[Rfam]
RNA: MIR408 microRNA precursor family
RNA sequence: ACAUGAUUGAAGAGGACAGACGGGGACGAGGGAGAGCAUGAGAUGAGGCUUUUUAAUCAUCACAAACACUAGUGUUGUUUCUCUUCCCCUGCACUGCCUCUUCCCUGGCUGUCCUCUCUCUCUCUCUCU
Numbered sequence: 001a002c003a004u005g006a007u008u009g010a011a012g013a014g015g016a017c018a019g020a021c022g023g024g025g026a027c028g029a030g031g032g033a034g035a036g037c038a039u040g041a042g043a044u045g046a047g048g049c050u051u052u053u054u055a056a057u058c059a060u061c062a063c064a065a066a067c068a069c070u071a072g073u074g075u076u077g078u079u080u081c082u083c084u085u086c087c088c089c090u091g092c093a094c095u096g097c098c099u100c101u102u103c104c105c106u107g108g109c110u111g112u113c114c115u116c117u118c119u120c121u122c123u124c125u126c127u128c129u
Base pairs, nucleotide, nucleotide: 017111018110019109021107022106023105024104025103026102029099030098031097033095034094036092037091038090040088042087047083048082